RNA sequence: CUUAACCACUGUGCCACCAGGGCUUCCAAAAUACCAAAGGUAAAUAUUAAUUACCUAAUAUAGUACCUGAAGCCCUGGUGGCACAGUGGUUAAGAG
Numbered sequence: 001c002u003u004a005a006c007c008a009c010u011g012u013g014c015c016a017c018c019a020g021g022g023c024u025u026c027c028a029a030a031a032u033a034c035c036a037a038a039g040g041u042a043a044a045u046a047u048u049a050a051u052u053a054c055c056u057a058a059u060a061u062a063g064u065a066c067c068u069g070a071a072g073c074c075c076u077g078g079u080g081g082c083a084c085a086g087u088g089g090u091u092a093a094g095a096g
Base pairs, nucleotide, nucleotide: 006089007088008087009086010085011084012083013082014081015080017078018077019076020075021074022073023072024071025070026069
Annotation
Rfam assigns this 96-nucleotide sequence from Loxodonta africana to the family "MIR473 microRNA precursor family". Rfam links the family to the GO terms miRNA-mediated post-transcriptional gene silencing and RISC complex. The source organism's lineage runs through Eukaryota, Chordata, Theria, Eutheria and Loxodonta.